This 205-nucleotide RNA sequence from Burkholderia sp. Leaf177 belongs to the Rfam family "Burkholderia sRNA Bp1_Cand738_SIPHT". The base pairs follow the family's consensus structure, which was predicted with RNAalifold. NCBI's taxonomy places the organism under Bacteria, Pseudomonadati, Betaproteobacteria, Burkholderiaceae, Burkholderia. The family's RNA type in Rfam is small RNA.

[Rfam]
RNA sequence: CGAAAAACCGGCGAAGAAGAGCGCCGGCGAGAAGACCAAUGCCACUACUUACCGGAACAAUCCGGCCGGGUGACGCAAAGCGUCGUUUCAACAGACCCGCGGCACUGGUAAAAAGUUUCAUUCGGUGUUGUCAAUGUCGAUGGAUUCUAGCAGCCUCAAAUGAUCCGUCAAUGCUGAGAAAUGUAAAACCUAUUACUUCUGGUUA
Numbered sequence: 001c002g003a004a005a006a007a008c009c010g011g012c013g014a015a016g017a018a019g020a021g022c023g024c025c026g027g028c029g030a031g032a033a034g035a036c037c038a039a040u041g042c043c044a045c046u047a048c049u050u051a052c053c054g055g056a057a058c059a060a061u062c063c064g065g066c067c068g069g070g071u072g073a074c075g076c077a078a079a080g081c082g083u084c085g086u087u088u089c090a091a092c093a094g095a096c097c098c099g100c101g102g103c104a105c106u107g108g109u110a111a112a113a114a115g116u117u118u119c120a121u122u123c124g125g126u127g128u129u130g131u132c133a134a135u136g137u138c139g140a141u142g143g144a145u146u147c148u149a150g151c152a153g154c155c156u157c158a159a160a161u162g163a164u165c166c167g168u169c170a171a172u173g174c175u176g177a178g179a180a181a182u183g184u185a186a187a188a189c190c191u192a193u194u195a196c197u198u199c200u201g202g203u204u205a
Stems, first nucleotide, its partner, number of pairs: 008027006042108003046104001052065004072084005135173003140168004148162002